[Rfam]
RNA: permuted transfer-messenger RNA
RNA sequence: GCUGGUAGAUUGCUUGGUGAAAUAGGCAUUUCGGACCCGGGGGGCAGUACCCCGGCGCCUCCACCAGCAGCGGCGCUCGGGACACGAGCGGGGGCUCUAGGGCGCCGUUGCUGAUGGGGGCGAAACAGGAUCGACGAGUGCAGUAAAGGCCUGGUUGCCAGUCGGCAUGGAACCGCCGCUAACGGUCCAUUCUCACAAGUGCCAACGAUAACGAGGCGCUCGCGAUUGCCGCGUAA
Numbered sequence: 001g002c003u004g005g006u007a008g009a010u011u012g013c014u015u016g017g018u019g020a021a022a023u024a025g026g027c028a029u030u031u032c033g034g035a036c037c038c039g040g041g042g043g044g045c046a047g048u049a050c051c052c053c054g055g056c057g058c059c060u061c062c063a064c065c066a067g068c069a070g071c072g073g074c075g076c077u078c079g080g081g082a083c084a085c086g087a088g089c090g091g092g093g094g095c096u097c098u099a100g101g102g103c104g105c106c107g108u109u110g111c112u113g114a115u116g117g118g119g120g121c122g123a124a125a126c127a128g129g130a131u132c133g134a135c136g137a138g139u140g141c142a143g144u145a146a147a148g149g150c151c152u153g154g155u156u157g158c159c160a161g162u163c164g165g166c167a168u169g170g171a172a173c174c175g176c177c178g179c180u181a182a183c184g185g186u187c188c189a190u191u192c193u194c195a196c197a198a199g200u201g202c203c204a205a206c207g208a209u210a211a212c213g214a215g216g217c218g219c220u221c222g223c224g225a226u227u228g229c230c231g232c233g234u235a236a
Stems, first nucleotide, its partner, number of pairs: 001162005016151003027140003031137003037055005056122007163178004